A member of the RNA family "Mason-Pfizer monkey virus packaging signal" from Papio anubis, 282 nucleotides long. Rfam links the family to the GO term viral genome packaging. The source organism's lineage runs through Eukaryota, Opisthokonta, Sarcopterygii, Primates and Papio. A reference for the family is Harrison et al. (1995), "Secondary structure model of the Mason-Pfizer monkey virus 5' leader sequence: identification of a structural motif common to a variety of retroviruses", J Virol. Pairs were carried over by alignment from the consensus structure, which was predicted with PFOLD. Rfam describes the family as follows. This family represents a group of sequences that are related to the Mason-Pfizer monkey virus (MPMV) packaging signal. The packaging signal is located in the 5' UTR and is required for specific RNA encapsidation.
RNA sequence: UGCCUCAAACAGGGACCUGGAAACGAGGACUGUAUGAGAGGAAGAGGAUGCCAAGGAUUUGGCCCACUGCCAACCUCCAGACAAAGGAGUAAAACUCUUCCGACAUCACAAGGGAAUCCCAAGGCCUGAAUCGAAGGUAAGGACGCUGUUCAAAUGUACAAGAAUUGCCGCAACAACUUAUGCAGGAGAAUAUCUAAAAGAGGCUUUAAAGAUAUGAGGAGUAAAGGUUAAAGGUAAUGAUUUGCUUUAAAAUUUUUGAUUUUGUAAAGAUACUUUGCCCUU
Numbered sequence: 001u002g003c004c005u006c007a008a009a010c011a012g013g014g015a016c017c018u019g020g021a022a023a024c025g026a027g028g029a030c031u032g033u034a035u036g037a038g039a040g041g042a043a044g045a046g047g048a049u050g051c052c053a054a055g056g057a058u059u060u061g062g063c064c065c066a067c068u069g070c071c072a073a074c075c076u077c078c079a080g081a082c083a084a085a086g087g088a089g090u091a092a093a094a095c096u097c098u099u100c101c102g103a104c105a106u107c108a109c110a111a112g113g114g115a116a117u118c119c120c121a122a123g124g125c126c127u128g129a130a131u132c133g134a135a136g137g138u139a140a141g142g143a144c145g146c147u148g149u150u151c152a153a154a155u156g157u158a159c160a161a162g163a164a165u166u167g168c169c170g171c172a173a174c175a176a177c178u179u180a181u182g183c184a185g186g187a188g189a190a191u192a193u194c195u196a197a198a199a200g201a202g203g204c205u206u207u208a209a210a211g212a213u214a215u216g217a218g219g220a221g222u223a224a225a226g227g228u229u230a231a232a233g234g235u236a237a238u239g240a241u242u243u244g245c246u247u248u249a250a251a252a253u254u255u256u257u258g259a260u261u262u263u264g265u266a267a268a269g270a271u272a273c274u275u276u277g278c279c280c281u282u
Stems, first nucleotide, its partner, number of pairs: 003028003033047001035045001094138003099134002106130001107128002109123001112120002147156003166208001167204003215258006222251001225243006266282002269279001271277001